[Rfam]
RNA: Plant small nucleolar RNA R71
RNA sequence: UAGUUGUUGUGUGGGCAUGCUUGAAAAAGUGAUUUGAAAUGUUCCCAUGCUUCAUGAAGCAACUCCCCAUCUUUCUGGACACAGUUUGCUAUUUGUUUCCUAAUUUG
Numbered sequence: 001u002a003g004u005u006g007u008u009g010u011g012u013g014g015g016c017a018u019g020c021u022u023g024a025a026a027a028a029g030u031g032a033u034u035u036g037a038a039a040u041g042u043u044c045c046c047a048u049g050c051u052u053c054a055u056g057a058a059g060c061a062a063c064u065c066c067c068c069a070u071c072u073u074u075c076u077g078g079a080c081a082c083a084g085u086u087u088g089c090u091a092u093u094u095g096u097u098u099c100c101u102a103a104u105u106u107g
Stems, first nucleotide, its partner, number of pairs: 001107001003105001005102002057074002